[Rfam]
RNA: Glycine riboswitch aptamer
Organism: Herbiconiux ginsengi
RNA sequence: UAGCUCGACGCGGGAGAGCCGAUCCACUCCGGAACGGCACCGAAGGAGCAAUCCUCCCCGAUAAUCUCUCAGGUCCUCGUACCGCAUCGAACUG
Numbered sequence: 001u002a003g004c005u006c007g008a009c010g011c012g013g014g015a016g017a018g019c020c021g022a023u024c025c026a027c028u029c030c031g032g033a034a035c036g037g038c039a040c041c042g043a044a045g046g047a048g049c050a051a052u053c054c055u056c057c058c059c060g061a062u063a064a065u066c067u068c069u070c071a072g073g074u075c076c077u078c079g080u081a082c083c084g085c086a087u088c089g090a091a092c093u094g
Stems, first nucleotide, its partner, number of pairs: 006089003010085004019037003039074003042070002046068003052061002